[Rfam]
RNA sequence: UAACCAAAGCAGAAGCACCCCGCUUCUCACCUGGUUGACGCCGGCAUGGCUGUUGACAGGUUGUUACGGUUCGUGAUAUGGUUUUCGGACGUAAGCAGUGUGGGUGUCGUAUGCAUCCACACUUUUUUGUUGGA
Numbered sequence: 001u002a003a004c005c006a007a008a009g010c011a012g013a014a015g016c017a018c019c020c021c022g023c024u025u026c027u028c029a030c031c032u033g034g035u036u037g038a039c040g041c042c043g044g045c046a047u048g049g050c051u052g053u054u055g056a057c058a059g060g061u062u063g064u065u066a067c068g069g070u071u072c073g074u075g076a077u078a079u080g081g082u083u084u085u086c087g088g089a090c091g092u093a094a095g096c097a098g099u100g101u102g103g104g105u106g107u108c109g110u111a112u113g114c115a116u117c118c119a120c121a122c123u124u125u126u127u128u129g130u131u132g133g134a
Base pairs, nucleotide, nucleotide: 011027012026013025014024015023016022029061030060031059037054038053039052040050041049099121100120101119102118103117104116105115106114107113
RNA: Ribosomal protein L20 leader